[Rfam]
RNA sequence: GGCUGCAACAUCCCCGCGAGCGGGACUCUUUGGAAACAAAGUGGUUAGCGCGUUCGCUGCAGCC
Numbered sequence: 001g002g003c004u005g006c007a008a009c010a011u012c013c014c015c016g017c018g019a020g021c022g023g024g025a026c027u028c029u030u031u032g033g034a035a036a037c038a039a040a041g042u043g044g045u046u047a048g049c050g051c052g053u054u055c056g057c058u059g060c061a062g063c064c
Stems, first nucleotide, its partner, number of pairs: 001064007013050001014048001016057007023049001025046001027044002
Background: This 64-nucleotide RNA belongs to the Rfam family "nadA riboswitch". The family's RNA type in Rfam is small RNA. For this family Rfam cites "Structure and ligand binding of the ADP-binding domain of the NAD(+) riboswitch" (Huang et al., RNA, 2020). Pairs were carried over by alignment from the consensus structure, which is taken from published work.